The record is a 377-nucleotide sequence from Xanthobacter dioxanivorans, which matches "Alphaproteobacteria transfer-messenger RNA" in Rfam. The family's consensus secondary structure is taken from published work. The literature on the family includes a 2003 paper in Nucleic Acids Res by Zwieb et al., "tmRDB (tmRNA database)". The match comes from Rfam's covariance-model search (299 bits).
[Rfam]
RNA sequence: CCCCUUUCAUCGGGACGGCGGCACGCUUAUAUUCCUUGAGCCGGCGCAAGCCGGAUAUGGCGAUAAAUGGUUGUCGUAAUAAGCCUUUCGGACCCGGGGGCGGUACCCGGCGCCUCCACCUGAGUCCAUCGCGCGUGUUGUUUCCGGACGGCGCGGGUUGGGCUUCGGCGGGGGCGAAAUAGGAUCGACGAGGGUGUAAAGGGCAUUCUUUCGCUCGGCAUUGUUCCGCCGUUAUCGGGCUAAACUUAUAGUUGCCAACGACAACUAUGCUCCGGUUGCUCAGGCCGCGUGAGCGGUUUGACGAUCGAAAUCAAAGUCCUACCGGGUAGCACUGGAUAGGCGGGGUUCGGAGGCACCUGGCAACAGAAGCCUCCACU
Numbered sequence: 001c002c003c004c005u006u007u008c009a010u011c012g013g014g015a016c017g018g019c020g021g022c023a024c025g026c027u028u029a030u031a032u033u034c035c036u037u038g039a040g041c042c043g044g045c046g047c048a049a050g051c052c053g054g055a056u057a058u059g060g061c062g063a064u065a066a067a068u069g070g071u072u073g074u075c076g077u078a079a080u081a082a083g084c085c086u087u088u089c090g091g092a093c094c095c096g097g098g099g100g101c102g103g104u105a106c107c108c109g110g111c112g113c114c115u116c117c118a119c120c121u122g123a124g125u126c127c128a129u130c131g132c133g134c135g136u137g138u139u140g141u142u143u144c145c146g147g148a149c150g151g152c153g154c155g156g157g158u159u160g161g162g163c164u165u166c167g168g169c170g171g172g173g174g175c176g177a178a179a180u181a182g183g184a185u186c187g188a189c190g191a192g193g194g195u196g197u198a199a200a201g202g203g204c205a206u207u208c209u210u211u212c213g214c215u216c217g218g219c220a221u222u223g224u225u226c227c228g229c230c231g232u233u234a235u236c237g238g239g240c241u242a243a244a245c246u247u248a249u250a251g252u253u254g255c256c257a258a259c260g261a262c263a264a265c266u267a268u269g270c271u272c273c274g275g276u277u278g279c280u281c282a283g284g285c286c287g288c289g290u291g292a293g294c295g296g297u298u299u300g301a302c303g304a305u306c307g308a309a310a311u312c313a314a315a316g317u318c319c320u321a322c323c324g325g326g327u328a329g330c331a332c333u334g335g336a337u338a339g340g341c342g343g344g345g346u347u348c349g350g351a352g353g354c355a356c357c358u359g360g361c362a363a364c365a366g367a368a369g370c371c372u373c374c375a376c377u
Stems, first nucleotide, its partner, number of pairs: 041054004059215005069208002072205004084194003088191003094110005111176007216231004221242001223240001225239003343358004349374006